Annotation:
TPP riboswitch aptamer (THI element): a 109-nucleotide sequence from Nocardioides mesophilus. The family's consensus secondary structure is taken from published work. The source organism's lineage runs through Bacteria, Bacillati, Actinomycetota, Nocardioidaceae and Nocardioides. For this family Rfam cites "Comparative genomics of thiamin biosynthesis in procaryotes. New genes and regulatory mechanisms" (Rodionov et al., J Biol Chem, 2002).
[Rfam]
RNA sequence: GCACAACGACAGGGGAGCGUCUACCGGGACGCUGAGAGUGCGGAACCAACCGCAGACCCUCGAACCUGAUCCGGGUCAUUCCGGCGAAGGGAGUCGAGUCUCGACCGCU
Numbered sequence: 001g002c003a004c005a006a007c008g009a010c011a012g013g014g015g016a017g018c019g020u021c022u023a024c025c026g027g028g029a030c031g032c033u034g035a036g037a038g039u040g041c042g043g044a045a046c047c048a049a050c051c052g053c054a055g056a057c058c059c060u061c062g063a064a065c066c067u068g069a070u071c072c073g074g075g076u077c078a079u080u081c082c083g084g085c086g087a088a089g090g091g092a093g094u095c096g097a098g099u100c101u102c103g104a105c106c107g108c109u
Stems, first nucleotide, its partner, number of pairs: 007096004011060004017032005039054005065090003071084004